[Rfam]
RNA sequence: CCCCUUGCCGUGUCGGGGUCAUGACACGGCAUCCUCCCUGUUGGACUAGGCCGGGCCUCGCGCCCGGCCCUUUUU
Numbered sequence: 001c002c003c004c005u006u007g008c009c010g011u012g013u014c015g016g017g018g019u020c021a022u023g024a025c026a027c028g029g030c031a032u033c034c035u036c037c038c039u040g041u042u043g044g045a046c047u048a049g050g051c052c053g054g055g056c057c058u059c060g061c062g063c064c065c066g067g068c069c070c071u072u073u074u075u
Stems, first nucleotide, its partner, number of pairs: 008029007049069008
Shown here is a 75-nucleotide sequence from Rhodobacter sp. CACIA14H1, a member of the family "Singlet oxygen resistance RNA X". Rfam 15.1 lists 528 matches to the family in 356 species. Gene Ontology term of the family: response to photooxidative stress. The match comes from Rfam's covariance-model search (81 bits). On this family, see Peng et al., RNA Biol 2016: "Regulation of a polyamine transporter by the conserved 3' UTR-derived sRNA SorX confers resistance to singlet oxygen and organic hydroperoxides in Rhodobacter sphaeroides". Pairs were carried over by alignment from the consensus structure. Rfam describes the family as follows. SorX (RSs2461)like SorY is a singlet oxygen induced sRNA that counteracts oxidative stress by targeting mRNA for a transporter in Rhodobacter. It also has an impact on resistance against organic hydroperoxides. The family's RNA type in Rfam is small RNA.